[Rfam]
RNA sequence: AAAGAGGAGAAUAAAGAGGAGGAGGAGGAGAAGGACUAGAAGGUCCUUGGCCUUCUAAUCCUCCUCCUCCUCCUUCUCCUUCUUC
Numbered sequence: 001a002a003a004g005a006g007g008a009g010a011a012u013a014a015a016g017a018g019g020a021g022g023a024g025g026a027g028g029a030g031a032a033g034g035a036c037u038a039g040a041a042g043g044u045c046c047u048u049g050g051c052c053u054u055c056u057a058a059u060c061c062u063c064c065u066c067c068u069c070c071u072c073c074u075u076c077u078c079c080u081u082c083u084u085c
Stems, first nucleotide, its partner, number of pairs: 004081006013075002016072001018070010029059001037057007045050001

The family of this 85-nucleotide RNA sequence from Hordeum vulgare is "mir-877 microRNA precursor family". A reference for the family is Berezikov et al. (2006), "Many novel mammalian microRNA candidates identified by extensive cloning and RAKE analysis", Genome Res. The base pairs follow the family's consensus structure, which was predicted with RNAalifold. The source organism's lineage runs through Eukaryota, Mesangiospermae, Liliopsida, Triticodae and Hordeum vulgare. The match comes from Rfam's covariance-model search (50 bits).